[Rfam]
Nucleotides: 106
Base pairs, nucleotide, nucleotide: 005029007027008026011024012023014020030068031067032066033065034064035063036062037061038060039059042057043056046051078101079100080099081098082097083096084095085094086093087092
Number, partner (000 for none) and nucleotide at each position: 001000c002000u003000c004000a005029a006000g007027g008026g009000a010000g011024u012023a013000g014020c015000u016000a017000a018000c019000g020014g021000a022000a023012u024011a025000a026008c027007c028000g029005u030068u031067a032066c033065a034064a035063g036062g037061u038060c039059g040000u041000c042057a043056a044000u045000a046051c047000g048000a049000a050000a051046g052000a053000a054000a055000u056043u057042u058000c059039c060038g061037g062036c063035c064034u065033u066032g067031u068030a069000u070000g071000a072000a073000a074000u075000a076000g077000c078101g079100a080099g081098a082097c083096u084095u085094g086093u087092u088000a089000a090000u091000a092087a093086a094085c095084a096083g097082g098081u099080c100079u101078c102000u103000u104000u105000u106000u
This 106-nucleotide RNA sequence from Streptococcus sanguinis belongs to the Rfam family "Streptococcus sRNA 10". A reference for the family is Tesorero et al. (2013), "Novel regulatory small RNAs in Streptococcus pyogenes", PLoS One. The family's RNA type in Rfam is small RNA. The match comes from Rfam's covariance-model search (68 bits).